[Rfam]
RNA sequence: AAAAAGGGCUUCUGCCGUGUGUGGCACGGGGAGGGCCGCGCGCCCGCCCCCGCGGAAUCGACAUCAAGAGAUUUCGGAAGCACAAUUUUUUGCGGUGAGGGGAGGCCGGUAACCGCUUGUUUCGGCGCCCCG
Numbered sequence: 001a002a003a004a005a006g007g008g009c010u011u012c013u014g015c016c017g018u019g020u021g022u023g024g025c026a027c028g029g030g031g032a033g034g035g036c037c038g039c040g041c042g043c044c045c046g047c048c049c050c051c052g053c054g055g056a057a058u059c060g061a062c063a064u065c066a067a068g069a070g071a072u073u074u075c076g077g078a079a080g081c082a083c084a085a086u087u088u089u090u091u092g093c094g095g096u097g098a099g100g101g102g103a104g105g106c107c108g109g110u111a112a113c114c115g116c117u118u119g120u121u122u123c124g125g126c127g128c129c130c131c132g
Base pairs, nucleotide, nucleotide: 008081009080010079011078012077013026014025015024016023017022027052028051029050030049031048034045035044036042053076054075055074056073057072058071059070100130101129102128105126106125107124108123109122111121112120113119
RNA: U11 spliceosomal RNA
Organism: Jacana jacana